Shown here is a 446-nucleotide RNA from Aspergillus tubingensis, a member of the family "RNase MRP". The family's consensus secondary structure is taken from published work.
RNA sequence: UCCUCGCUCAAAGAAUCGCAUUCAAAGCUCACACACAGAGAGCAGUCUUCACGACUCUCUCUUUCCCCCCUCAGCUUUGGGAGAAAGUCCCCGGACAUCCUGACUGUCUAAACGUCCUCUUGUAGGGCCCAGUCAGGCAAUGCGGAAACGCGCCGCCAUAGAAGCAAUUCGAUAGCGGCUUAUACGCCCUAUUCCCCUCCUAGUGUUUGUCUCUGUACCCGAACACUUGUCACCUUAUGGUGGCUUGUGGGUAACAAUGGUUGGUGCAGGACAGUGCUGGAGAGGGGGUUUUAUUUGGGUUGCCUUUCGUCGUGUUUGGAUAGUCAUGCGAUUGCCCUUCCUAUCUGUUUCUUCGAGCCGACCUCUCACGUCUGAAAAUAUGUCGGGGAGCGUUAGUCGGGAAAUAUUUAGGGGGUAACUCAAUGGGGCUCAUUCUUGAGGCGAGG
Numbered sequence: 001u002c003c004u005c006g007c008u009c010a011a012a013g014a015a016u017c018g019c020a021u022u023c024a025a026a027g028c029u030c031a032c033a034c035a036c037a038g039a040g041a042g043c044a045g046u047c048u049u050c051a052c053g054a055c056u057c058u059c060u061c062u063u064u065c066c067c068c069c070c071u072c073a074g075c076u077u078u079g080g081g082a083g084a085a086a087g088u089c090c091c092c093g094g095a096c097a098u099c100c101u102g103a104c105u106g107u108c109u110a111a112a113c114g115u116c117c118u119c120u121u122g123u124a125g126g127g128c129c130c131a132g133u134c135a136g137g138c139a140a141u142g143c144g145g146a147a148a149c150g151c152g153c154c155g156c157c158a159u160a161g162a163a164g165c166a167a168u169u170c171g172a173u174a175g176c177g178g179c180u181u182a183u184a185c186g187c188c189c190u191a192u193u194c195c196c197c198u199c200c201u202a203g204u205g206u207u208u209g210u211c212u213c214u215g216u217a218c219c220c221g222a223a224c225a226c227u228u229g230u231c232a233c234c235u236u237a238u239g240g241u242g243g244c245u246u247g248u249g250g251g252u253a254a255c256a257a258u259g260g261u262u263g264g265u266g267c268a269g270g271a272c273a274g275u276g277c278u279g280g281a282g283a284g285g286g287g288g289u290u291u292u293a294u295u296u297g298g299g300u301u302g303c304c305u306u307u308c309g310u311c312g313u314g315u316u317u318g319g320a321u322a323g324u325c326a327u328g329c330g331a332u333u334g335c336c337c338u339u340c341c342u343a344u345c346u347g348u349u350u351c352u353u354c355g356a357g358c359c360g361a362c363c364u365c366u367c368a369c370g371u372c373u374g375a376a377a378a379u380a381u382g383u384c385g386g387g388g389a390g391c392g393u394u395a396g397u398c399g400g401g402a403a404a405u406a407u408u409u410a411g412g413g414g415g416u417a418a419c420u421c422a423a424u425g426g427g428g429c430u431c432a433u434u435c436u437u438g439a440g441g442c443g444a445g446g
Stems, first nucleotide, its partner, number of pairs: 002446006008439004014333006022081001023079006038061005086430002089428004102108002158173002161170003175304001186300003196285004268278002271275001335415005